[Rfam]
RNA sequence: UCGCAGGCGACUGCGAAUCCGAAGGAAGCUGGCGGCAAAUAUGGGGACUUACGAACAGGAACUGUAUAUAAGGCGAGGUGAUAUGGGUGAUGUUGCAAGACAAACAAAAGCCCUAUACUGCACAGAAUAUCACUACGUAGAUACAGAGGUCACAUCCAUAGAAAGCGGGUUGC
Numbered sequence: 001u002c003g004c005a006g007g008c009g010a011c012u013g014c015g016a017a018u019c020c021g022a023a024g025g026a027a028g029c030u031g032g033c034g035g036c037a038a039a040u041a042u043g044g045g046g047a048c049u050u051a052c053g054a055a056c057a058g059g060a061a062c063u064g065u066a067u068a069u070a071a072g073g074c075g076a077g078g079u080g081a082u083a084u085g086g087g088u089g090a091u092g093u094u095g096c097a098a099g100a101c102a103a104a105c106a107a108a109a110g111c112c113c114u115a116u117a118c119u120g121c122a123c124a125g126a127a128u129a130u131c132a133c134u135a136c137g138u139a140g141a142u143a144c145a146g147a148g149g150u151c152a153c154a155u156c157c158a159u160a161g162a163a164a165g166c167g168g169g170u171u172g173c
Stems, first nucleotide, its partner, number of pairs: 001016006028173002031170001035166002040160006046151005062146006073138003077134007085113004091106004